RNA sequence: CCCUCAUCCAAAGACGUGUCAGUGGUUCCCUGUCUUUGGACAAGUAAGAAUUGAAGGCAAAGAAAUGUGGAUUUUGAGAAAUCUGGGACAGCUUGCUCCCUGCAGGCUCAAGAUCAACAUCCCAUAUAG
Number, nucleotide and partner (000 for none) at each position: 001c000002c057003c056004u055005c000006a000007u000008c000009c000010a000011a000012a000013g000014a000015c044016g000017u042018g041019u040020c039021a000022g000023u000024g030025g029026u000027u000028c000029c025030c024031u000032g000033u000034c000035u000036u000037u000038g000039g020040a019041c018042a017043a000044g015045u000046a000047a000048g000049a000050a000051u000052u000053g000054a000055a004056g003057g002058c000059a000060a000061a000062g000063a000064a000065a000066u000067g000068u000069g122070g121071a120072u000073u119074u000075u000076g000077a000078g000079a000080a000081a000082u000083c000084u000085g000086g000087g000088a000089c000090a108091g107092c106093u105094u104095g103096c102097u000098c000099c000100c000101u000102g096103c095104a094105g093106g092107c091108u090109c000110a000111a000112g000113a000114u000115c000116a000117a000118c000119a073120u071121c070122c069123c000124a000125u000126a000127u000128a000129g000
A member of the RNA family "Small nucleolar RNA SNORA38" from Myotis davidii, 129 nucleotides long. It scores 120 bits against the family's covariance model. About the family: ACA38 is a member of the H/ACA class of snoRNA that guide the sites of modification of uridines to pseudouridines. It is annotated as an H/ACA-box small nucleolar RNA.